[Rfam]
Bacterial RNase P class A: a 371-nucleotide RNA from Kordiimonas sediminis. The family's RNA type in Rfam is ribozyme. The base pairs follow the family's consensus structure, which is taken from published work.

RNA sequence: GCAGAUGGCUGGAUGGCCGCCGCCCGCUGAGCGGGAGGAGGAAAGUCCGGGCUCCACGGAAAUACGGUGCCGGUUAACGACCGGCGAGGGCGACCUUAGGGAAAGUGCCACAGAGAGCAGACCGCCAGUCUUUGGGCUGGUAAGGGUGAAAGGGUGCGGUAAGAGCGCACCGCGCGGCUGGUAACAGCAGCGGCAUGGUAAACCCCACCGGGAGCAAAACCAAUAGGGAUGAGAGUUCAUUCAGUUGAACUGGCGAAUUUCCGCGUCGUAUCCGGGUGGUUGCAUGAACAGUCUGGCAACAGGCUGUCUAGAUGAAUGGUCAUCCAUGCCUUCGGGCAGGACAGAACCCGGCUUACAGGCCAUCUGCCAAU
Numbered sequence: 001g002c003a004g005a006u007g008g009c010u011g012g013a014u015g016g017c018c019g020c021c022g023c024c025c026g027c028u029g030a031g032c033g034g035g036a037g038g039a040g041g042a043a044a045g046u047c048c049g050g051g052c053u054c055c056a057c058g059g060a061a062a063u064a065c066g067g068u069g070c071c072g073g074u075u076a077a078c079g080a081c082c083g084g085c086g087a088g089g090g091c092g093a094c095c096u097u098a099g100g101g102a103a104a105g106u107g108c109c110a111c112a113g114a115g116a117g118c119a120g121a122c123c124g125c126c127a128g129u130c131u132u133u134g135g136g137c138u139g140g141u142a143a144g145g146g147u148g149a150a151a152g153g154g155u156g157c158g159g160u161a162a163g164a165g166c167g168c169a170c171c172g173c174g175c176g177g178c179u180g181g182u183a184a185c186a187g188c189a190g191c192g193g194c195a196u197g198g199u200a201a202a203c204c205c206c207a208c209c210g211g212g213a214g215c216a217a218a219a220c221c222a223a224u225a226g227g228g229a230u231g232a233g234a235g236u237u238c239a240u241u242c243a244g245u246u247g248a249a250c251u252g253g254c255g256a257a258u259u260u261c262c263g264c265g266u267c268g269u270a271u272c273c274g275g276g277u278g279g280u281u282g283c284a285u286g287a288a289c290a291g292u293c294u295g296g297c298a299a300c301a302g303g304c305u306g307u308c309u310a311g312a313u314g315a316a317u318g319g320u321c322a323u324c325c326a327u328g329c330c331u332u333c334g335g336g337c338a339g340g341a342c343a344g345a346a347c348c349c350g351g352c353u354u355a356c357a358g359g360c361c362a363u364c365u366g367c368c369a370a371u
Stems, first nucleotide, its partner, number of pairs: 001367010011356001012324007020038002023035005043354003047351005052214004061260002065210005070084005085099001086097004100205002105203002107199003122145002124141007153171006172194001173192003177188004218281004227273005253266003288307008